A member of the RNA family "Mammalian CPEB3 ribozyme" from Crocodylus porosus, 77 nucleotides long. The organism belongs to Crocodylus, within Eukaryota. Rfam's curators write: The mammalian CPEB3 ribozyme is a self cleaving RNA located in the second intron of the CPEB3 gene which belongs to a family of genes regulating messenger RNA polyadenylation. Rfam links the family to the GO term RNA nuclease activity. The family has 14 seed sequences and 5,706 matches in Rfam 15.1. It scores 42 bits against the family's covariance model.
RNA sequence: GGCUGCAAGUUCAAGGCCAUGGUGGAAGCACUAACAGUGUGCCCUUGUCAGAUUCCAAUGAAUCUGUGAAUUCUGCU
Numbered sequence: 001g002g003c004u005g006c007a008a009g010u011u012c013a014a015g016g017c018c019a020u021g022g023u024g025g026a027a028g029c030a031c032u033a034a035c036a037g038u039g040u041g042c043c044c045u046u047g048u049c050a051g052a053u054u055c056c057a058a059u060g061a062a063u064c065u066g067u068g069a070a071u072u073c074u075g076c077u
Stems, first nucleotide, its partner, number of pairs: 013045001015043002018041001021077007028040003049066007